Bacillaceae-1 RNA: a 67-nucleotide RNA sequence from Halobacillus halophilus. The organism belongs to Halobacillus halophilus, within Bacteria. It is annotated as a small RNA. The match comes from Rfam's covariance-model search (65 bits).

RNA sequence: GCAAAAGGAGGAUCGACUAAAGUCGCCACGUCCUGUGGCAACGUCGAUCGACCCCACGUCGUGUAGG
Numbered sequence: 001g002c003a004a005a006a007g008g009a010g011g012a013u014c015g016a017c018u019a020a021a022g023u024c025g026c027c028a029c030g031u032c033c034u035g036u037g038g039c040a041a042c043g044u045c046g047a048u049c050g051a052c053c054c055c056a057c058g059u060c061g062u063g064u065a066g067g
Stems, first nucleotide, its partner, number of pairs: 011049007025039005053067002056064002